[Rfam]
RNA: glmS glucosamine-6-phosphate activated ribozyme aptamer
Organism: Bacillus oleivorans
RNA sequence: AACUUACUAUAAGCGCCAGAACUAAACAAGUUUGUUUAGUUGACGAGGAGAAGGACGAUCGAAGCUUUCGGCGGAUGCCUUCCAGUUGUUCUGCACAGCUGAGACUCGAUUCUUAAAACAGAAGGGUGACUUUCUGCACAAAGGGAUAGAGAUGCAGACCG
Numbered sequence: 001a002a003c004u005u006a007c008u009a010u011a012a013g014c015g016c017c018a019g020a021a022c023u024a025a026a027c028a029a030g031u032u033u034g035u036u037u038a039g040u041u042g043a044c045g046a047g048g049a050g051a052a053g054g055a056c057g058a059u060c061g062a063a064g065c066u067u068u069c070g071g072c073g074g075a076u077g078c079c080u081u082c083c084a085g086u087u088g089u090u091c092u093g094c095a096c097a098g099c100u101g102a103g104a105c106u107c108g109a110u111u112c113u114u115a116a117a118a119c120a121g122a123a124g125g126g127u128g129a130c131u132u133u134c135u136g137c138a139c140a141a142a143g144g145g146a147u148a149g150a151g152a153u154g155c156a157g158a159c160c161g
Stems, first nucleotide, its partner, number of pairs: 020041008050082005059071004083101006105151003109147003119136007